[Rfam]
RNA sequence: GUAAAAAGAAGUUAUAAUACUUCUCGCCGAAUACGAAAGGGUUUUUAGAUUUAAGUUAAACUGACUAAAAUUGAUAGCGGCCUCUAAGGUUCUUACCCAAAUGGGUGAGUCUGAUGAGUUUAAUAUAGAAAGUCCUUUCUGUUAUAGGAGAGGACCAGGAAAAAAAUUUAUAUAUUACUACCGUACCCUAAACCGACACAGGUUCGUAGGUAGAGAAUACUAAGGCGAA
Numbered sequence: 001g002u003a004a005a006a007a008g009a010a011g012u013u014a015u016a017a018u019a020c021u022u023c024u025c026g027c028c029g030a031a032u033a034c035g036a037a038a039g040g041g042u043u044u045u046u047a048g049a050u051u052u053a054a055g056u057u058a059a060a061c062u063g064a065c066u067a068a069a070a071u072u073g074a075u076a077g078c079g080g081c082c083u084c085u086a087a088g089g090u091u092c093u094u095a096c097c098c099a100a101a102u103g104g105g106u107g108a109g110u111c112u113g114a115u116g117a118g119u120u121u122a123a124u125a126u127a128g129a130a131a132g133u134c135c136u137u138u139c140u141g142u143u144a145u146a147g148g149a150g151a152g153g154a155c156c157a158g159g160a161a162a163a164a165a166a167u168u169u170a171u172a173u174a175u176u177a178c179u180a181c182c183g184u185a186c187c188c189u190a191a192a193c194c195g196a197c198a199c200a201g202g203u204u205c206g207u208a209g210g211u212a213g214a215g216a217a218u219a220c221u222a223a224g225g226c227g228a229a
Stems, first nucleotide, its partner, number of pairs: 007024006025227004033207004039187002044069005050064001054062002078183003083117002088112002090109001094107001096105003122137002141169001193202002209221004

Bacterial large subunit ribosomal RNA: a 229-nucleotide part of an RNA. The family's consensus secondary structure is taken from published work.